[Rfam]
RNA: Small nucleolar RNA SNORD90
Organism: Fregetta grallaria
RNA sequence: AACUCCCUUUUUUGUGUCUUGUGAUGAAGCUUCAUAGGGCAGAUUCUGAGCUGAGAAACUAAGUUUCUCGCCGCUGAUACUCUCGUAUGCCAUCUGAAGACACUACGUAUUUC
Numbered sequence: 001a002a003c004u005c006c007c008u009u010u011u012u013u014g015u016g017u018c019u020u021g022u023g024a025u026g027a028a029g030c031u032u033c034a035u036a037g038g039g040c041a042g043a044u045u046c047u048g049a050g051c052u053g054a055g056a057a058a059c060u061a062a063g064u065u066u067c068u069c070g071c072c073g074c075u076g077a078u079a080c081u082c083u084c085g086u087a088u089g090c091c092a093u094c095u096g097a098a099g100a101c102a103c104u105a106c107g108u109a110u111u112u113c
Stems, first nucleotide, its partner, number of pairs: 012105001014103006029093001033089003036083004042078001045077002048074001050072001052070006